[Rfam]
RNA sequence: GUCUGUGGCAAUCUCGCACCUGGGGCUCACAUACAGUGUACUUGUUACACCAACAAAAGCAACGGGAAGGUCUGAGACAGACAAUCACCUUCUAGCCGGAGGCUUGCUUAACAGCAAGGCGGGGGAACCAGAAACAUGCCAGCUCUGCACUCAGCCCGGGAUUGCUCUUUACACAGCAUAGGUGAUGUGUCUGAGUGGGUUGGAAACCCUCGUAGUCAGCAAUUUAAGUUUAAUCUGCGAGUUGAUGGUUCAAAUGCUGUCAAAACUCAAUUCAGACUAGUCUGUCGUAGAC
Numbered sequence: 001g002u003c004u005g006u007g008g009c010a011a012u013c014u015c016g017c018a019c020c021u022g023g024g025g026c027u028c029a030c031a032u033a034c035a036g037u038g039u040a041c042u043u044g045u046u047a048c049a050c051c052a053a054c055a056a057a058a059g060c061a062a063c064g065g066g067a068a069g070g071u072c073u074g075a076g077a078c079a080g081a082c083a084a085u086c087a088c089c090u091u092c093u094a095g096c097c098g099g100a101g102g103c104u105u106g107c108u109u110a111a112c113a114g115c116a117a118g119g120c121g122g123g124g125g126a127a128c129c130a131g132a133a134a135c136a137u138g139c140c141a142g143c144u145c146u147g148c149a150c151u152c153a154g155c156c157c158g159g160g161a162u163u164g165c166u167c168u169u170u171a172c173a174c175a176g177c178a179u180a181g182g183u184g185a186u187g188u189g190u191c192u193g194a195g196u197g198g199g200u201u202g203g204a205a206a207c208c209c210u211c212g213u214a215g216u217c218a219g220c221a222a223u224u225u226a227a228g229u230u231u232a233a234u235c236u237g238c239g240a241g242u243u244g245a246u247g248g249u250u251c252a253a254a255u256g257c258u259g260u261c262a263a264a265a266c267u268c269a270a271u272u273c274a275g276a277c278u279a280g281u282c283u284g285u286c287g288u289a290g291a292c
Stems, first nucleotide, its partner, number of pairs: 001292004008285003013241006022063001025060002036050005072275005080217003088102005103118006119213007139199002242263007

About this RNA: Nuclear RNase P: a 292-nucleotide sequence from Sitophilus oryzae. Ribonuclease P (RNase P) is a ubiquitous endoribonuclease, found in archaea, bacteria and eukarya as well as chloroplasts and mitochondria. Its best characterised activity is the generation of mature 5'-ends of tRNAs by cleaving the 5'-leader elements of precursor-tRNAs. Cellular RNase Ps are ribonucleoproteins. RNA from bacterial RNase Ps retains its catalytic activity in the absence of the protein subunit, i.e. it is a ribozyme. It scores 138 bits against the family's covariance model. Rfam classes the family as a ribozyme.